[Rfam]
RNA sequence: UUUAUCCUUCAGGGCAGGGUGCGAUUCCCUACCGGCGGUGAUGAGGCUUGACGGCUGUAAGGCGGUCAGGUCGGCUAAGUCCGCUACCCGUGUCAUAGUCAUAUGAACGGUGGAUCCGGUGCAAAUCCGGAACCGACAGUAUAGUCUGGAUGGAAGAAGGAGAGA
Numbered sequence: 001u002u003u004a005u006c007c008u009u010c011a012g013g014g015c016a017g018g019g020u021g022c023g024a025u026u027c028c029c030u031a032c033c034g035g036c037g038g039u040g041a042u043g044a045g046g047c048u049u050g051a052c053g054g055c056u057g058u059a060a061g062g063c064g065g066u067c068a069g070g071u072c073g074g075c076u077a078a079g080u081c082c083g084c085u086a087c088c089c090g091u092g093u094c095a096u097a098g099u100c101a102u103a104u105g106a107a108c109g110g111u112g113g114a115u116c117c118g119g120u121g122c123a124a125a126u127c128c129g130g131a132a133c134c135g136a137c138a139g140u141a142u143a144g145u146c147u148g149g150a151u152g153g154a155a156g157a158a159g160g161a162g163a164g165a
Stems, first nucleotide, its partner, number of pairs: 003163001005161006017029003031145002033135002035084004088110002115131005137148003

FMN riboswitch aptamer (RFN element): a 165-nucleotide RNA from Paenibacillus sp. NFR01. A search with the family's covariance model found it, with a score of 108 bits. The family's consensus secondary structure is taken from published work. Taxonomically the source falls in Paenibacillus (Bacteria, Bacillota, Caryophanales, Paenibacillaceae).